[Rfam]
RNA sequence: UCAGCGAGUGCUCCCAGGAACCGGGGGCGUCCUCCGCCAGGGUGUGGUCGCCGUAGAAGUCGCCGUCGCCGAGGACCCGGACCUGGGUGUCGUUGUCGUAGGCGCCGGGUGCGGUCUCGCGGAUCUUGCCGUGGGCGAUCAGGUAGACGCGGUCGGCGUCGGAGCCGGCCGUGGCGAGGACCUCCCCGGCGGAGAAGUCCCGCUGCUCGCACGCGUUGGCGAGCUCCUGGAGCACCUCGGCAUCGUCGUACCCGGCGAGGGCGGGGAGUUCACCCAGCUCCGCGGGGAUCACCCGGACCUCGGAGCCGGUGGAGACGAACUCGACCCGGCCGUUGCCGAGGGUGUGGCUCAACCGCCGGUUGACGCGGAAGGUUCCGCCGGAGACCUGGACCCAGGGAAGGACCUUCAACAGCCACCGCGAGGAGAUCCCCUGCAUCUGCGGCGGGGUCUUCGUCGUCGUCGCAAGGUUGCGCGCCGCCGCGGUCGCCAGGCUCAGCUGCGGCUGGGCCGC
Numbered sequence: 001u002c003a004g005c006g007a008g009u010g011c012u013c014c015c016a017g018g019a020a021c022c023g024g025g026g027g028c029g030u031c032c033u034c035c036g037c038c039a040g041g042g043u044g045u046g047g048u049c050g051c052c053g054u055a056g057a058a059g060u061c062g063c064c065g066u067c068g069c070c071g072a073g074g075a076c077c078c079g080g081a082c083c084u085g086g087g088u089g090u091c092g093u094u095g096u097c098g099u100a101g102g103c104g105c106c107g108g109g110u111g112c113g114g115u116c117u118c119g120c121g122g123a124u125c126u127u128g129c130c131g132u133g134g135g136c137g138a139u140c141a142g143g144u145a146g147a148c149g150c151g152g153u154c155g156g157c158g159u160c161g162g163a164g165c166c167g168g169c170c171g172u173g174g175c176g177a178g179g180a181c182c183u184c185c186c187c188g189g190c191g192g193a194g195a196a197g198u199c200c201c202g203c204u205g206c207u208c209g210c211a212c213g214c215g216u217u218g219g220c221g222a223g224c225u226c227c228u229g230g231a232g233c234a235c236c237u238c239g240g241c242a243u244c245g246u247c248g249u250a251c252c253c254g255g256c257g258a259g260g261g262c263g264g265g266g267a268g269u270u271c272a273c274c275c276a277g278c279u280c281c282g283c284g285g286g287g288a289u290c291a292c293c294c295g296g297a298c299c300u301c302g303g304a305g306c307c308g309g310u311g312g313a314g315a316c317g318a319a320c321u322c323g324a325c326c327c328g329g330c331c332g333u334u335g336c337c338g339a340g341g342g343u344g345u346g347g348c349u350c351a352a353c354c355g356c357c358g359g360u361u362g363a364c365g366c367g368g369a370a371g372g373u374u375c376c377g378c379c380g381g382a383g384a385c386c387u388g389g390a391c392c393c394a395g396g397g398a399a400g401g402a403c404c405u406u407c408a409a410c411a412g413c414c415a416c417c418g419c420g421a422g423g424a425g426a427u428c429c430c431c432u433g434c435a436u437c438u439g440c441g442g443c444g445g446g447g448u449c450u451u452c453g454u455c456g457u458c459g460u461c462g463c464a465a466g467g468u469u470g471c472g473c474g475c476c477g478c479c480g481c482g483g484u485c486g487c488c489a490g491g492c493u494c495a496g497c498u499g500c501g502g503c504u505g506g507g508c509c510g511c
Base pairs, nucleotide, nucleotide: 005389007387008386011383012382015329017327018326022323023322024321025320028317032314033313034312035311036310037309038308047307049305051303052302053301056238057237059235060234064230067113068112069111080103082101086097087096088095119227121225122224124222125221129218131216132215133212135210136209137208138207140205141204142203146201153194160189162187164185166179168175169174239298241296245292246291248289249288252286253285255283256282257281259280260279261278263273265271331344332343333342334341353381354380355379357377358376359375362374363373364372393433394432395431396430397429399427403423405420407418439478440477441476442475444473446471449467450466451465453463454462479510480509481505482504483503485501486500488499489498490497
This 511-nucleotide sequence from Streptomyces lonarensis belongs to the Rfam family "Saccharopolyspora sRNA 350". Lineage of the source: Bacteria > Actinomycetota > Actinomycetes > Streptomycetaceae > Streptomyces. A reference for the family is Liu et al. (2013), "Prediction and characterization of small non-coding RNAs related to secondary metabolites in Saccharopolyspora erythraea", PLoS One. Rfam 15.1 lists 1,170 matches to the family in 705 species. A search with the family's covariance model found it, with a score of 75 bits. Pairs were carried over by alignment from the consensus structure, which was predicted with RNAfold.